[Rfam]
RNA: Small nucleolar RNA SNORA81
Organism: Crocuta crocuta
RNA sequence: ACCUUCUUUCGUUUAAGCACUGUGUCAAAACUGCAGACACCAUGAUCACAUCUUGGUUUUUGUAAUAAUGUUAGCAGAGUACACGCAAGAAGAAAAGGAACUGCACUAGACUGUAAAACCUGGGUGGGCCUCUCUCUUAAUGUCUAGUGCCCUUUGUCUUAAGAUUUGAUGCAAUAUAU
Numbered sequence: 001a002c003c004u005u006c007u008u009u010c011g012u013u014u015a016a017g018c019a020c021u022g023u024g025u026c027a028a029a030a031c032u033g034c035a036g037a038c039a040c041c042a043u044g045a046u047c048a049c050a051u052c053u054u055g056g057u058u059u060u061u062g063u064a065a066u067a068a069u070g071u072u073a074g075c076a077g078a079g080u081a082c083a084c085g086c087a088a089g090a091a092g093a094a095a096a097g098g099a100a101c102u103g104c105a106c107u108a109g110a111c112u113g114u115a116a117a118a119c120c121u122g123g124g125u126g127g128g129c130c131u132c133u134c135u136c137u138u139a140a141u142g143u144c145u146a147g148u149g150c151c152c153u154u155u156g157u158c159u160u161a162a163g164a165u166u167u168g169a170u171g172c173a174a175u176a177u178a179u
Stems, first nucleotide, its partner, number of pairs: 020079002023076003027072001030069001032067002036060002039057004044052003102173004107168004122150001123148001125146004